[Rfam]
RNA: U1 spliceosomal RNA
Organism: Cyprinus carpio
RNA sequence: AUACUUACCUGGCAGGGGUGACUGCAUGAUAAAGCAGGUGGAUCACCUAGAACGAGGAUCAGCCAUUGCACUUCGGCUUUCUGACCUCUAUGAAUUCUCCACAUGUGAGAAUCUCAACUGCAUAAUUUCUGCUAGUGGGGACUGCGUUCGCGCUUUCCCCUA
Dot-bracket structure: ...........((((((((((.(.(((..........))).)))))))(((..(.(((..((((..........)))).)))..).))).((((((.((.......)).))).))).))))...............(((((..(((....)))..)))))..